Notes: This 119-nucleotide RNA sequence from Candidatus Brocadia sinica belongs to the Rfam family "c-di-GMP-I riboswitch aptamer". The family's consensus secondary structure is taken from published work.
RNA sequence: UUUUGAUAAGGGUAAACCCUGAGUGAUCGGGGGGCGCAAAGUAGUGGAUCUUUAAGCCUGUACGGACGGGGUUUUAAAAAACCGGUUUUUGCGGGAAUAAAGACAGCCUUACUGCCGGA
Numbered sequence: 001u002u003u004u005g006a007u008a009a010g011g012g013u014a015a016a017c018c019c020u021g022a023g024u025g026a027u028c029g030g031g032g033g034g035c036g037c038a039a040a041g042u043a044g045u046g047g048a049u050c051u052u053u054a055a056g057c058c059u060g061u062a063c064g065g066a067c068g069g070g071g072u073u074u075u076a077a078a079a080a081a082c083c084g085g086u087u088u089u090u091g092c093g094g095g096a097a098u099a100a101a102g103a104c105a106g107c108c109u110u111a112c113u114g115c116c117g118g119a
Stems, first nucleotide, its partner, number of pairs: 012037002017032006040113004046108002049103002055098001